[Rfam]
RNA sequence: AGAAUUCGAAAGGCAGACGAACCUCCUCCCUCGUCUCCUUCGAUAGGUGGCCGAGCGAACCUCCUCCCUCGCGACGCCACCACCCAGAGAAGCGCCCGUCGGACCUCCUCCCCCGACGGGCGUUUUUC
Numbered sequence: 001a002g003a004a005u006u007c008g009a010a011a012g013g014c015a016g017a018c019g020a021a022c023c024u025c026c027u028c029c030c031u032c033g034u035c036u037c038c039u040u041c042g043a044u045a046g047g048u049g050g051c052c053g054a055g056c057g058a059a060c061c062u063c064c065u066c067c068c069u070c071g072c073g074a075c076g077c078c079a080c081c082a083c084c085c086a087g088a089g090a091a092g093c094g095c096c097c098g099u100c101g102g103a104c105c106u107c108c109u110c111c112c113c114c115g116a117c118g119g120g121c122g123u124u125u126u127u128c
Base pairs, nucleotide, nucleotide: 007042008041009040013038015036016035017034018033019032047080048079049078050077051076055072056071092123093122094121095120096119097118098117099116100115101114102113
Shown here is a 128-nucleotide sequence from Prosthecomicrobium pneumaticum, a member of the family "Alphaproteobacterial ar14". Lineage of the source: Bacteria > Pseudomonadota > Hyphomicrobiales > Kaistiaceae > Prosthecomicrobium. The family's RNA type in Rfam is small RNA. The pairing is the family consensus, mapped onto this sequence. The family has 118 seed sequences and 784 matches in Rfam 15.1. Rfam's curators write: Smr14C2 was renamed NfeR1 (Nodule Formation Efficiency RNA) highly expressed in salt stress and during the symbiotic interaction on legume roots. For this family Rfam cites "A survey of sRNA families in alpha-proteobacteria" (del Val et al., RNA Biol, 2012).